[Rfam]
RNA sequence: GAAAGGUAGCCGAAUAGUCUCCGUAUGGUGGCGUGCCAUGACAAGCACAUGGAUAGGCUACCUUUCGCCU
Numbered sequence: 001g002a003a004a005g006g007u008a009g010c011c012g013a014a015u016a017g018u019c020u021c022c023g024u025a026u027g028g029u030g031g032c033g034u035g036c037c038a039u040g041a042c043a044a045g046c047a048c049a050u051g052g053a054u055a056g057g058c059u060a061c062c063u064u065u066c067g068c069c070u
Base pairs, nucleotide, nucleotide: 001066002065003064004063005062006061007060008059009058010057011056017032018031019030021028022027036052037051038050039049
RNA: DUF3800-IX RNA
Organism: Arcanobacterium haemolyticum